[Rfam]
RNA sequence: CUGAGUCCUGGGCUUGUUUUAAGUUGCCUGUGAUUGUUGGAUAGAGCACAGGCAGCUAAAGCAAGUCUGGGAAGCUG
Numbered sequence: 001c002u003g004a005g006u007c008c009u010g011g012g013c014u015u016g017u018u019u020u021a022a023g024u025u026g027c028c029u030g031u032g033a034u035u036g037u038u039g040g041a042u043a044g045a046g047c048a049c050a051g052g053c054a055g056c057u058a059a060a061g062c063a064a065g066u067c068u069g070g071g072a073a074g075c076u077g
Stems, first nucleotide, its partner, number of pairs: 003075001006072003010068011022057009032047001